[Rfam]
Notes:
Small nucleolar RNA SNORA27: a 118-nucleotide RNA sequence from Sciurus vulgaris. NCBI's taxonomy places the organism under Eukaryota, Opisthokonta, Metazoa, Sarcopterygii, Sciurus. The base pairs follow the family's consensus structure. Rfam's curators write: ACA27 is a member of the H/ACA class of snoRNA that guide the sites of modification of uridines to pseudouridines.
RNA sequence: CCCCGCCUUUACUCUUUGCCAACUGGACUUAUGUCUUUAUUAGUCAUUCAAGUGGGGCAAAGGAAAUAUCCUUUUGUAACUCAGGCAAACUGUCAUGUAACCUGUUGAGGAAACAAAU
Numbered sequence: 001c002c003c004c005g006c007c008u009u010u011a012c013u014c015u016u017u018g019c020c021a022a023c024u025g026g027a028c029u030u031a032u033g034u035c036u037u038u039a040u041u042a043g044u045c046a047u048u049c050a051a052g053u054g055g056g057g058c059a060a061a062g063g064a065a066a067u068a069u070c071c072u073u074u075u076g077u078a079a080c081u082c083a084g085g086c087a088a089a090c091u092g093u094c095a096u097g098u099a100a101c102c103u104g105u106u107g108a109g110g111a112a113a114c115a116a117a118u
Stems, first nucleotide, its partner, number of pairs: 032059005040051002043048001069111005082097001084094004